[Rfam]
RNA: Picornavirus internal ribosome entry site (IRES)
Organism: Enterovirus coxsackiepol
RNA sequence: CGUGGGACGCUAGUUGUGAACAAGGUGUGAAGAGCCUAUUGAGCUACUCAAGAGUCCUCCGGCCCCUGAAUGCGGCUAAUCCUAACCACGGAGCAAUCGCUCACGACCCAGUGAGUAGGUUGUCGUAAUGCGUAAGUCUGUGGCGGAACCGACUACUUUGGGUGUCCGUGUUUCCCUUUAUAUUCAUACUGGCUGCUUAUGGUGACAAUUUACGAAUUGUUACCAUAUAGCUAUUGGAUUGGCCACCCAGUG
Numbered sequence: 001c002g003u004g005g006g007a008c009g010c011u012a013g014u015u016g017u018g019a020a021c022a023a024g025g026u027g028u029g030a031a032g033a034g035c036c037u038a039u040u041g042a043g044c045u046a047c048u049c050a051a052g053a054g055u056c057c058u059c060c061g062g063c064c065c066c067u068g069a070a071u072g073c074g075g076c077u078a079a080u081c082c083u084a085a086c087c088a089c090g091g092a093g094c095a096a097u098c099g100c101u102c103a104c105g106a107c108c109c110a111g112u113g114a115g116u117a118g119g120u121u122g123u124c125g126u127a128a129u130g131c132g133u134a135a136g137u138c139u140g141u142g143g144c145g146g147a148a149c150c151g152a153c154u155a156c157u158u159u160g161g162g163u164g165u166c167c168g169u170g171u172u173u174c175c176c177u178u179u180a181u182a183u184u185c186a187u188a189c190u191g192g193c194u195g196c197u198u199a200u201g202g203u204g205a206c207a208a209u210u211u212a213c214g215a216a217u218u219g220u221u222a223c224c225a226u227a228u229a230g231c232u233a234u235u236g237g238a239u240u241g242g243c244c245a246c247c248c249a250g251u252g
Stems, first nucleotide, its partner, number of pairs: 005011002020026002034196002042194005050183001060168003064162003073151003080147003086143007094122004099116006124130002198227013